RNA sequence: GUGAAGUGAUGACUAAGUUUAUCCAUUCUCUGAGAAAACUGUAUACCAACCUUCCUUUAGCUCUAGGUUCCUGUUUUAGGAAUCUGUGCUCUAUAGUCACUAAAUGCCCAGCAGUCUUGCAGUGUGCUACUGUAGACAGUUGGUGUAGAAGGUGGCCUUAAUGAAGGAAUGGAUGGUAUCAGCAGACAGAGGUGGAACCUCAUCCAUUGAAGGUCUCAUCUUGUCAAGAUGAAUGAUGGAAGUCUGAUUGC
Numbered sequence: 001g002u003g004a005a006g007u008g009a010u011g012a013c014u015a016a017g018u019u020u021a022u023c024c025a026u027u028c029u030c031u032g033a034g035a036a037a038a039c040u041g042u043a044u045a046c047c048a049a050c051c052u053u054c055c056u057u058u059a060g061c062u063c064u065a066g067g068u069u070c071c072u073g074u075u076u077u078a079g080g081a082a083u084c085u086g087u088g089c090u091c092u093a094u095a096g097u098c099a100c101u102a103a104a105u106g107c108c109c110a111g112c113a114g115u116c117u118u119g120c121a122g123u124g125u126g127c128u129a130c131u132g133u134a135g136a137c138a139g140u141u142g143g144u145g146u147a148g149a150a151g152g153u154g155g156c157c158u159u160a161a162u163g164a165a166g167g168a169a170u171g172g173a174u175g176g177u178a179u180c181a182g183c184a185g186a187c188a189g190a191g192g193u194g195g196a197a198c199c200u201c202a203u204c205c206a207u208u209g210a211a212g213g214u215c216u217c218a219u220c221u222u223g224u225c226a227a228g229a230u231g232a233a234u235g236a237u238g239g240a241a242g243u244c245u246g247a248u249u250g251c
Stems, first nucleotide, its partner, number of pairs: 010250003014246001017243004024235005030228002034224001039182003044178005050172002052169005057163001060090001062088001064086009093159001096156004106146002108143001111140002114137003118134007189222007198213002
The record is a 251-nucleotide sequence from Monodelphis domestica, which matches "Small nucleolar RNA SNORD17" in Rfam. A search with the family's covariance model found it, with a score of 121 bits. Pairs were carried over by alignment from the consensus structure, which was predicted with RNAalifold. Rfam describes the family as follows. The snoRNA HBI-43 belongs to the C/D family of snoRNAs, guiding 2'O-ribose methylation at position U3797 of the 28S rRNA. Pseudouridylation in position U3797 is predicted to be guided by the H/ACA snoRNA ACA48. The family's RNA type in Rfam is C/D-box small nucleolar RNA. Its family is annotated with RNA processing and nucleolus in the Gene Ontology.